[Rfam]
Overview: small Cajal body-specific RNA 17: a 141-nucleotide sequence from Fukomys damarensis. The source organism's lineage runs through Eukaryota, Deuterostomia, Gnathostomata, Euteleostomi and Fukomys. Rfam 15.1 lists 262 matches to the family in 128 species. Gene Ontology terms of the family: Cajal body, nucleolus and RNA processing. The match comes from Rfam's covariance-model search (106 bits). On this family, see Darzacq et al., EMBO J 2002: "Cajal body-specific small nuclear RNAs: a novel class of 2'-O-methylation and pseudouridylation guide RNAs". Rfam classes the family as a small Cajal body RNA.
RNA sequence: CUCCAUUGUCCCCAUUUUAGCCCCCAGUGAGCCUGCAGUAUUUUCCUUAUAUGAUCAGGCCCCAUUGUGGGUGGUGUUGCUUGCCUGGAGCCUAGAGAAUUAUGAAACAUGUCAGGUGAUGUGGGGCCAGAGGACCUGGUG
Number, nucleotide and partner (000 for none) at each position: 001c141002u000003c139004c000005a000006u000007u000008g135009u134010c133011c132012c000013c130014a000015u000016u000017u000018u000019a000020g127021c126022c125023c124024c123025c000026a000027g000028u000029g000030a000031g000032c000033c000034u000035g000036c000037a000038g000039u000040a000041u000042u000043u000044u000045c000046c000047u000048u000049a000050u000051a000052u000053g000054a000055u094056c000057a093058g092059g091060c090061c000062c088063c087064a000065u000066u000067g084068u083069g082070g081071g080072u079073g078074g000075u000076g000077u000078u073079g072080c071081u070082u069083g068084c067085c000086u000087g063088g062089a000090g060091c059092c058093u057094a055095g000096a000097g000098a000099a000100u000101u000102a000103u000104g000105a000106a000107a000108c000109a000110u000111g000112u000113c000114a000115g000116g000117u000118g000119a000120u000121g000122u000123g024124g023125g022126g021127c020128c000129a000130g013131a000132g011133g010134a009135c008136c000137u000138g000139g003140u000141g001